[Rfam]
RNA: Small nucleolar RNA snoR111
RNA sequence: GGAAGUGAGGAGACAUUUUAUUAUUGUGUCUCUUUAUUGAGGUAUAGUGAAAUCGAAGGCUGAGAUAUUGUUCCAGUCAUCAGUUUUCUCAAUUGAUAAAUUGGUUGUUGCUUGUACACAU
Numbered sequence: 001g002g003a004a005g006u007g008a009g010g011a012g013a014c015a016u017u018u019u020a021u022u023a024u025u026g027u028g029u030c031u032c033u034u035u036a037u038u039g040a041g042g043u044a045u046a047g048u049g050a051a052a053u054c055g056a057a058g059g060c061u062g063a064g065a066u067a068u069u070g071u072u073c074c075a076g077u078c079a080u081c082a083g084u085u086u087u088c089u090c091a092a093u094u095g096a097u098a099a100a101u102u103g104g105u106u107g108u109u110g111c112u113u114g115u116a117c118a119c120a121u
Base pairs, nucleotide, nucleotide: 006036007035008034009033010032011031012030013029014028015027058117061114062113063112064111067105068104069103070102077099079097080096081095082094084092085091